[Rfam]
mir-395 microRNA precursor family: an 85-nucleotide RNA from Cocos nucifera. The organism belongs to Cocos, within Eukaryota. mir-395 was identified in both Arabidopsis thaliana and Oryza sativa computationally and was later experimentally verified. mir-395 is thought to target mRNAs coding for ATP sulphurylases. The mature sequence is excised from the 3' arm of the hairpin.
RNA sequence: GUGUCCCCUAGGGUUCCCCCCAUCCACUUCAGGAGAGUAGCCUGGGGAGAAACGCUGAAGUGCUUGGGGGAACUCUGGGUGACAA
Dot-bracket structure: ....(.(((.((((((((((.(..((((((((......................))))))))..))))))))))).))).)....
Numbered sequence: 001g002u003g004u005c006c007c008c009u010a011g012g013g014u015u016c017c018c019c020c021c022a023u024c025c026a027c028u029u030c031a032g033g034a035g036a037g038u039a040g041c042c043u044g045g046g047g048a049g050a051a052a053c054g055c056u057g058a059a060g061u062g063c064u065u066g067g068g069g070g071a072a073c074u075c076u077g078g079g080u081g082a083c084a085a
Stems, first nucleotide, its partner, number of pairs: 005081001007079003011075010022065001025062008